Source information:
The record is a 74-nucleotide RNA from Strongylocentrotus purpuratus, which matches "Mammalian CPEB3 ribozyme" in Rfam.
RNA sequence: AGGGGGGUCCCGGGGGCCAUUGAAGGAGCGUUCACGUCGCGGCCCCUGUCAGAUGAAAAUCUGCGAAUCCUUCA
Numbered sequence: 001a002g003g004g005g006g007g008u009c010c011c012g013g014g015g016g017c018c019a020u021u022g023a024a025g026g027a028g029c030g031u032u033c034a035c036g037u038c039g040c041g042g043c044c045c046c047u048g049u050c051a052g053a054u055g056a057a058a059a060u061c062u063g064c065g066a067a068u069c070c071u072u073c074a
Stems, first nucleotide, its partner, number of pairs: 013046006021074007028040003050063005
Rfam's curators put it in the seed alignment.